[Rfam]
RNA sequence: AAGGCGACUUCCGAAAAGCCCAAAGAGUAGGAA
Dot-bracket structure: ..(((....[[[.....))).........]]].